[Rfam]
RNA sequence: GGCGUCGUCAUGAUGAAGCUAUUACGGAUGUAAAUGAGCACAGCUCGUCGAUCCGAGAGCGCAUACAAACCGUGUGGAUCUUUCCGUUGCCUUCCUUCUGAACCUUUUGU
Numbered sequence: 001g002g003c004g005u006c007g008u009c010a011u012g013a014u015g016a017a018g019c020u021a022u023u024a025c026g027g028a029u030g031u032a033a034a035u036g037a038g039c040a041c042a043g044c045u046c047g048u049c050g051a052u053c054c055g056a057g058a059g060c061g062c063a064u065a066c067a068a069a070c071c072g073u074g075u076g077g078a079u080c081u082u083u084c085c086g087u088u089g090c091c092u093u094c095c096u097u098c099u100g101a102a103c104c105u106u107u108u109g110u
Base pairs, nucleotide, nucleotide: 003109004108025086026085027084028083